[Rfam]
The family of this 179-nucleotide RNA from Ectobacillus ponti is "Lysine riboswitch aptamer". NCBI's taxonomy places the organism under Bacteria, Bacillati, Bacilli, Caryophanales, Ectobacillus. From the family's description: Riboswitches are metabolite binding domains within certain messenger RNAs that serve as precision sensors for their corresponding targets.

RNA sequence: AGGUGAGGUAGAGGUCGCGAGGCUUAAGAGUAUCUUGCCGGAGAGUCAGAGAGCUUGAUGAAAGCAAGGGAAAGGAAGCAUCGCCGAAGCGCCGCCAUGCUCUGGUUGCGGCAGCUGGGACUGUAUCCGAACAGGUGCAGGACUGUCAUAGUUGCUUGCUAUGAUGAACUAUCCUUUGA
Number, nucleotide and partner (000 for none) at each position: 001a000002g000003g000004u000005g000006a000007g173008g172009u171010a170011g169012a000013g000014g000015u000016c000017g084018c083019g082020a081021g000022g079023c078024u077025u076026a000027a000028g000029a000030g000031u000032a000033u069034c068035u067036u066037g065038c064039c000040g000041g000042a000043g000044a000045g000046u000047c000048a000049g000050a000051g000052a000053g000054c000055u000056u000057g000058a000059u000060g000061a000062a000063a000064g038065c037066a036067a035068g034069g033070g000071a000072a000073a000074g000075g000076a025077a024078g023079c022080a000081u020082c019083g018084c017085c000086g000087a000088a116089g115090c114091g112092c111093c110094g109095c108096c000097a106098u105099g000100c000101u000102c000103u000104g000105g098106u097107u000108g095109c094110g093111g092112c091113a000114g090115c089116u088117g144118g143119g000120a000121c140122u139123g138124u137125a136126u135127c134128c000129g000130a000131a000132c000133a000134g127135g126136u125137g124138c123139a122140g121141g000142a000143c118144u117145g000146u164147c163148a162149u161150a160151g159152u158153u000154g000155c000156u000157u000158g152159c151160u150161a149162u148163g147164a146165u000166g000167a000168a000169c011170u010171a009172u008173c007174c000175u000176u000177u000178g000179a000